A member of the RNA family "Coronavirus 3' UTR pseudoknot" from Betacoronavirus cororeum, 59 nucleotides long. The source organism's lineage runs through Viruses, Pisoniviricetes, Nobecovirus, Betacoronavirus cororeum and Rousettus bat coronavirus GCCDC1. A reference for the family is Williams et al. (1999), "A phylogenetically conserved hairpin-type 3' untranslated region pseudoknot functions in coronavirus RNA replication", J Virol.

[Rfam]
RNA sequence: CUACUCUUAUACAGAAUGAGAUCCUAGUGUACUGCAGUAUAAGAAGGCAUUGCACUCGC
Number, nucleotide and partner (000 for none) at each position: 001c000002u000003a000004c000005u000006c000007u042008u041009a040010u039011a038012c037013a000014g000015a000016a000017u000018g000019a000020g000021a000022u000023c000024c000025u000026a000027g000028u054029g053030u052031a051032c000033u049034g048035c047036a000037g012038u011039a010040u009041a008042a007043g000044a000045a000046g000047g035048c034049a033050u000051u031052g030053c029054a028055c000056u000057c000058g000059c000